Actino-pnp RNA: a 62-nucleotide sequence from Actinomadura macrotermitis. It is annotated as a cis-regulatory element.
RNA sequence: GCCGGUCCUCGGUAGUGGCUCCCGGAUCCGGGCGGAUCCGGCUGCUUCGAUCGAAGACCGGC
Numbered sequence: 001g002c003c004g005g006u007c008c009u010c011g012g013u014a015g016u017g018g019c020u021c022c023c024g025g026a027u028c029c030g031g032g033c034g035g036a037u038c039c040g041g042c043u044g045c046u047u048c049g050a051u052c053g054a055a056g057a058c059c060g061g062c
Base pairs, nucleotide, nucleotide: 001062002061003060004059005058006057007056009054010053011052012051013050017046018045019044022041023040024039025038026037027036028035029034
The match comes from Rfam's covariance-model search (69 bits). NCBI's taxonomy places the organism under Bacteria, Actinomycetota, Actinomycetes, Streptosporangiales, Actinomadura.